Background
Rfam assigns this 149-nucleotide RNA from Leptospirillum ferrooxidans to the family "Group II catalytic intron D1-D4-7". The source organism's lineage runs through Bacteria, Nitrospirales, Nitrospiraceae, Leptospirillum and Leptospirillum ferrooxidans.

RNA sequence: CCCCGUCUUCCCUGACGGGUAGCCUACCGGAACCGGCGUGGCUGUCAACGGCCGGGUCGGAAGCUUCCGGAACAACGUACCCUCCCGAAAAUGGGCUUUUCAGUCCGUGAGGAUCGAACAGGACCUGCCAGCAUCAGGCGGAUCGGGGG
Numbered sequence: 001c002c003c004c005g006u007c008u009u010c011c012c013u014g015a016c017g018g019g020u021a022g023c024c025u026a027c028c029g030g031a032a033c034c035g036g037c038g039u040g041g042c043u044g045u046c047a048a049c050g051g052c053c054g055g056g057u058c059g060g061a062a063g064c065u066u067c068c069g070g071a072a073c074a075a076c077g078u079a080c081c082c083u084c085c086c087g088a089a090a091a092u093g094g095g096c097u098u099u100u101c102a103g104u105c106c107g108u109g110a111g112g113a114u115c116g117a118a119c120a121g122g123a124c125c126u127g128c129c130a131g132c133a134u135c136a137g138g139c140g141g142a143u144c145g146g147g148g149g
Stems, first nucleotide, its partner, number of pairs: 002019006028069005033060005039054006084095004098120001099118002105112002125141005